[Rfam]
RNA sequence: CGCAGCCAAGUCAAAUUCAGCCCCGUUCCCACUGUAGCGGGGGCUGGCCCAGAUGACUGCCACAGCAAGCGCCACAGUUCAUGGGCCCUGGGUCCCCCGCCCUGGGACCUGGGGAUGAGUUUGGCUGCGGACAUGG
Numbered sequence: 001c002g003c004a005g006c007c008a009a010g011u012c013a014a015a016u017u018c019a020g021c022c023c024c025g026u027u028c029c030c031a032c033u034g035u036a037g038c039g040g041g042g043g044c045u046g047g048c049c050c051a052g053a054u055g056a057c058u059g060c061c062a063c064a065g066c067a068a069g070c071g072c073c074a075c076a077g078u079u080c081a082u083g084g085g086c087c088c089u090g091g092g093u094c095c096c097c098c099g100c101c102c103u104g105g106g107a108c109c110u111g112g113g114g115a116u117g118a119g120u121u122u123g124g125c126u127g128c129g130g131a132c133a134u135g136g
Base pairs, nucleotide, nucleotide: 002060003059004058005057018046019045020044021043022041023040024039025038026037027036075127076126077125078124079123086114087113088112090110091109
The record is a 136-nucleotide RNA sequence from Molossus molossus, which matches "Small nucleolar RNA SNORA5" in Rfam. NCBI's taxonomy places the organism under Eukaryota, Vertebrata, Dipnotetrapodomorpha, Boreoeutheria, Molossus. Rfam describes the family as follows. ACA5 is a member of the H/ACA class of snoRNA that guide the sites of modification of uridines to pseudouridines. The family's RNA type in Rfam is H/ACA-box small nucleolar RNA.